[Rfam]
RNA sequence: UGAGGAACCGACCCUCCGAGGCCUACCUGCGGGGGGCGACUUUCAAGCCACCCUCGACGGCGUUGGUCAAAAGCUCUUGUCCUGAGCGUUGAGGGAAAAGGCGCGACAAACGCGUCAGGU
Numbered sequence: 001u002g003a004g005g006a007a008c009c010g011a012c013c014c015u016c017c018g019a020g021g022c023c024u025a026c027c028u029g030c031g032g033g034g035g036g037c038g039a040c041u042u043u044c045a046a047g048c049c050a051c052c053c054u055c056g057a058c059g060g061c062g063u064u065g066g067u068c069a070a071a072a073g074c075u076c077u078u079g080u081c082c083u084g085a086g087c088g089u090u091g092a093g094g095g096a097a098a099a100g101g102c103g104c105g106a107c108a109a110a111c112g113c114g115u116c117a118g119g120u
Stems, first nucleotide, its partner, number of pairs: 002016004018044002020041002023038001026035003049119001051095005056089001057083001060080003065075003100116006

This 120-nucleotide sequence from Desulfosarcina ovata belongs to the Rfam family "Group II catalytic intron D1-D4-2". Its family is annotated with Group II intron splicing in the Gene Ontology. Group II introns are found in rRNA, tRNA and mRNA of organelles in fungi, plants and protists, and also in mRNA in bacteria. The literature on the family includes a 2001 paper in Trends Genet by Bonen and Vogel, "The ins and outs of group II introns".